RNA sequence: AUAACAAAAAUUAAAACCAAAAGACAUAACAAGAAUUAGACGAAUCGCCUCCCUUAGAACAACGACAAUAUUUUGGAGACGCAGCUAACUGAUUUCUUUGGAGAAGAUUGUCUUCGGUUGAUACCGCGAUCAGGUGAAGAAGAACAAGAACUGCGUUCAAAGCAGUGUGGACCGAUCGGAUAAACAUCACGACAGCUCAGCUUCCAAACAAAUCCGUUCGCUCUUGGUCCCGCAUAAGGACGCCGGCUGAAAAACAAAAACAAGCCAAGCGGGCAGCGCAACAAGAACAAUGGCAGCGCCAUGAACAAGAAGGAGGAGCCUCGGCUCCUCCUUUUUUUUGCGCAGUCAUUGACGACUCA
Dot-bracket structure: .............................................((.((((......................)))).))...............((((.........((...............(((((.(.................((((.......))))......).))))).....................))...))))..................((..(.......)..))...........................(.((.(......................)...........(((((((((....))))))))..).....)).)................
Numbered sequence: 001a002u003a004a005c006a007a008a009a010a011u012u013a014a015a016a017c018c019a020a021a022a023g024a025c026a027u028a029a030c031a032a033g034a035a036u037u038a039g040a041c042g043a044a045u046c047g048c049c050u051c052c053c054u055u056a057g058a059a060c061a062a063c064g065a066c067a068a069u070a071u072u073u074u075g076g077a078g079a080c081g082c083a084g085c086u087a088a089c090u091g092a093u094u095u096c097u098u099u100g101g102a103g104a105a106g107a108u109u110g111u112c113u114u115c116g117g118u119u120g121a122u123a124c125c126g127c128g129a130u131c132a133g134g135u136g137a138a139g140a141a142g143a144a145c146a147a148g149a150a151c152u153g154c155g156u157u158c159a160a161a162g163c164a165g166u167g168u169g170g171a172c173c174g175a176u177c178g179g180a181u182a183a184a185c186a187u188c189a190c191g192a193c194a195g196c197u198c199a200g201c202u203u204c205c206a207a208a209c210a211a212a213u214c215c216g217u218u219c220g221c222u223c224u225u226g227g228u229c230c231c232g233c234a235u236a237a238g239g240a241c242g243c244c245g246g247c248u249g250a251a252a253a254a255c256a257a258a259a260a261c262a263a264g265c266c267a268a269g270c271g272g273g274c275a276g277c278g279c280a281a282c283a284a285g286a287a288c289a290a291u292g293g294c295a296g297c298g299c300c301a302u303g304a305a306c307a308a309g310a311a312g313g314a315g316g317a318g319c320c321u322c323g324g325c326u327c328c329u330c331c332u333u334u335u336u337u338u339u340g341c342g343c344a345g346u347c348a349u350u351g352a353c354g355a356c357u358c359a
Stems, first nucleotide, its partner, number of pairs: 046081002049078004097208004110201002127178005133172001151165004227243002231239001271343001273341002276299001311334001312331008
Pseudomonas sRNA CrcZ: a 359-nucleotide RNA sequence from Pseudomonas matsuisoli. Gene Ontology term of the family: carbon catabolite repression of transcription. The literature on the family includes a 2006 paper in Nucleic Acids Res by Livny et al., "Identification of 17 Pseudomonas aeruginosa sRNAs and prediction of sRNA-encoding genes in 10 diverse pathogens using the bioinformatic tool sRNAPredict2". The family's RNA type in Rfam is small RNA. It scores 177 bits against the family's covariance model.